[Rfam]
RNA: RpsF leader
Organism: Histophilus somni
RNA sequence: GCCAUAGUUAAUUUUCGUUCCUUGCUUCCGCAAGAUUGGUGGCUGGUCUUAUAAUCGGAGGCUGAUUAACCCGUAAGGAGCAGUAAUG
Numbered sequence: 001g002c003c004a005u006a007g008u009u010a011a012u013u014u015u016c017g018u019u020c021c022u023u024g025c026u027u028c029c030g031c032a033a034g035a036u037u038g039g040u041g042g043c044u045g046g047u048c049u050u051a052u053a054a055u056c057g058g059a060g061g062c063u064g065a066u067u068a069a070c071c072c073g074u075a076a077g078g079a080g081c082a083g084u085a086a087u088g
Base pairs, nucleotide, nucleotide: 017081018080019079020078021077022076023075024062025061026060027059028058029057033049034048035047